[Rfam]
RNA sequence: UAUCCAUCCCGAGCGGCUGAGAGACCUGGCUCGUCGAAGUCGCAGCAACCACCCUCCGCGGGGCAGGUGCUACCGCCAGGAUCGAUGGAGG
Numbered sequence: 001u002a003u004c005c006a007u008c009c010c011g012a013g014c015g016g017c018u019g020a021g022a023g024a025c026c027u028g029g030c031u032c033g034u035c036g037a038a039g040u041c042g043c044a045g046c047a048a049c050c051a052c053c054c055u056c057c058g059c060g061g062g063g064c065a066g067g068u069g070c071u072a073c074c075g076c077c078a079g080g081a082u083c084g085a086u087g088g089a090g091g
Base pairs, nucleotide, nucleotide: 001091003089004088005087006086007085008084013043014042015041016040017039021032022031023030026079027078028077029076044071045070046069047068049067050066052062053061054060075083